[Rfam]
RNA sequence: CUACACAGCAUGAUACCCAGAGUCUGUCCCCAGACAUUGUACCUGGCGCUGUUAGGCUGAAGUUAAAGUGUUUU
Numbered sequence: 001c002u003a004c005a006c007a008g009c010a011u012g013a014u015a016c017c018c019a020g021a022g023u024c025u026g027u028c029c030c031c032a033g034a035c036a037u038u039g040u041a042c043c044u045g046g047c048g049c050u051g052u053u054a055g056g057c058u059g060a061a062g063u064u065a066a067a068g069u070g071u072u073u074u
Base pairs, nucleotide, nucleotide: 005052006051007050008049009048017046018045019044020043022035023034024033025032026031